[Rfam]
RNA: msiK RNA
Organism: Micropruina sp.
RNA sequence: GGCGCUGUGUUUCCACUACGGAUCGUCGGGCACGUACCUGCCCGUGGAAGGAAGUUGUU
Numbered sequence: 001g002g003c004g005c006u007g008u009g010u011u012u013c014c015a016c017u018a019c020g021g022a023u024c025g026u027c028g029g030g031c032a033c034g035u036a037c038c039u040g041c042c043c044g045u046g047g048a049a050g051g052a053a054g055u056u057g058u059u
Stems, first nucleotide, its partner, number of pairs: 010050006027044006